[Rfam]
The family of this 70-nucleotide sequence from Orthohepacivirus hominis is "Hepatitis C virus stem-loop VII". For this family Rfam cites "Conserved RNA secondary structures and long-range interactions in hepatitis C viruses" (Fricke et al., RNA, 2015). Rfam classes the family as a cis-regulatory element.
RNA sequence: CAAGUUAAUUGCUCAAGGGGGGAAAGCCGCUAUAUGCGGAAAGUACCUCUUCAAUUGGGCAGUUAAAACG
Dot-bracket structure: .....((((((((((((((((.....((((.....))))......)))))....))))))))))).....